[Rfam]
RNA sequence: AACUAGAUUACAGGGCAAAGUCUCCAUUGGUAGGCAGACAACCACUUUAAACGUGCAUCUAAAGCUCAUGCUUUGAUGUAGUGUGCUCUCUGCCAAAGGAGAUUUGCCCAGUAAUUCUUUU
Numbered sequence: 001a002a003c004u005a006g007a008u009u010a011c012a013g014g015g016c017a018a019a020g021u022c023u024c025c026a027u028u029g030g031u032a033g034g035c036a037g038a039c040a041a042c043c044a045c046u047u048u049a050a051a052c053g054u055g056c057a058u059c060u061a062a063a064g065c066u067c068a069u070g071c072u073u074u075g076a077u078g079u080a081g082u083g084u085g086c087u088c089u090c091u092g093c094c095a096a097a098g099g100a101g102a103u104u105u106g107c108c109c110a111g112u113a114a115u116u117c118u119u120u121u
Stems, first nucleotide, its partner, number of pairs: 006116004011111001013109007022101004028095007036087001
RNA: mir-399 microRNA precursor family